[Rfam]
RNA: L17 ribosomal protein downstream element
RNA sequence: AGAGCGUCAUGAUGGUAAUAAUCAUCUUGCUUUGUAAGAUGGGAAGUCUGAGGCUACUGAAUGGUAGCCUUAUUCUUUCCUUGAUUAUUUAGUCUAGCUCGUUGCCUUCCCGUCAUUCACUUGGCGGG
Numbered sequence: 001a002g003a004g005c006g007u008c009a010u011g012a013u014g015g016u017a018a019u020a021a022u023c024a025u026c027u028u029g030c031u032u033u034g035u036a037a038g039a040u041g042g043g044a045a046g047u048c049u050g051a052g053g054c055u056a057c058u059g060a061a062u063g064g065u066a067g068c069c070u071u072a073u074u075c076u077u078u079c080c081u082u083g084a085u086u087a088u089u090u091a092g093u094c095u096a097g098c099u100c101g102u103u104g105c106c107u108u109c110c111c112g113u114c115a116u117u118c119a120c121u122u123g124g125c126g127g128g
Base pairs, nucleotide, nucleotide: 002100003099004098005097011094012093013092017089018088019087020086021085022084023083024082109128110127111126112125113124114123115122